[Rfam]
Plant small nucleolar RNA R71: a 106-nucleotide RNA sequence from Abrus precatorius. The base pairs follow the family's consensus structure, which was predicted with PFOLD.
RNA sequence: AAAUCAUGAUGAGGACAUCUCCUUAAAAUCUUUCCAAAUUGCUCCCAUGCCUCGAAUAAGGAUUCUGCUUCAUAUUGUUGGAACCACAUAUCUCCGUCAUGAGUUU
Numbered sequence: 001a002a003a004u005c006a007u008g009a010u011g012a013g014g015a016c017a018u019c020u021c022c023u024u025a026a027a028a029u030c031u032u033u034c035c036a037a038a039u040u041g042c043u044c045c046c047a048u049g050c051c052u053c054g055a056a057u058a059a060g061g062a063u064u065c066u067g068c069u070u071c072a073u074a075u076u077g078u079u080g081g082a083a084c085c086a087c088a089u090a091u092c093u094c095c096g097u098c099a100u101g102a103g104u105u106u
Stems, first nucleotide, its partner, number of pairs: 001106001003104002005101002057074002060071001